Background:
This 89-nucleotide RNA from Pelodiscus sinensis belongs to the Rfam family "Small nucleolar RNA SNORD70". The base pairs follow the family's consensus structure. Its family is annotated with RNA processing and nucleolus in the Gene Ontology. It is annotated as a C/D-box small nucleolar RNA. snoRNA HBII-234 belongs to the C/D family of snoRNAs. It is the human orthologue of the mouse MBII-234 and is predicted to guide 2'O-ribose methylation of the small 18S rRNA on position A512. It is hosted, together with HBII-95, by the core C/D box snoRNA protein encoding gene NOP5/NOP58. Rfam 15.1 lists 1,085 matches to the family in 579 species. Lineage of the source: Eukaryota > Archelosauria > Testudines > Trionychidae > Pelodiscus. For this family Rfam cites "RNomics: an experimental approach that identifies 201 candidates for novel, small, non-messenger RNAs in mouse" (Huttenhofer et al., EMBO J, 2001).
RNA sequence: UACUCUGUUGUCAAUGAUGCAUUCUUGGUUAAACUGAAAUGUAAUGAUUUAAUACCACAUUUCGUCACUACCACUGAGACAACAGAUAA
Numbered sequence: 001u002a003c004u005c006u007g008u009u010g011u012c013a014a015u016g017a018u019g020c021a022u023u024c025u026u027g028g029u030u031a032a033a034c035u036g037a038a039a040u041g042u043a044a045u046g047a048u049u050u051a052a053u054a055c056c057a058c059a060u061u062u063c064g065u066c067a068c069u070a071c072c073a074c075u076g077a078g079a080c081a082a083c084a085g086a087u088a089a
Stems, first nucleotide, its partner, number of pairs: 001089001004086009